A member of the RNA family "MIR2275 microRNA precursor family" from Vitis rotundifolia, 92 nucleotides long.

RNA sequence: AAGCAGUACAUGAGAAUUGGAGGAAAUUAAUCCCAUUAGCAUUGUCAAUGCAUUACUGGGUUUAAUUUCCUCCAAUAUCUCAUCUACUGUUU
Numbered sequence: 001a002a003g004c005a006g007u008a009c010a011u012g013a014g015a016a017u018u019g020g021a022g023g024a025a026a027u028u029a030a031u032c033c034c035a036u037u038a039g040c041a042u043u044g045u046c047a048a049u050g051c052a053u054u055a056c057u058g059g060g061u062u063u064a065a066u067u068u069c070c071u072c073c074a075a076u077a078u079c080u081c082a083u084c085u086a087c088u089g090u091u092u
Stems, first nucleotide, its partner, number of pairs: 004089005011082004016076006023069008032060002
Gene Ontology terms of the family: miRNA-mediated post-transcriptional gene silencing and RISC complex.
The family has 13 seed sequences and 785 matches in Rfam 15.1.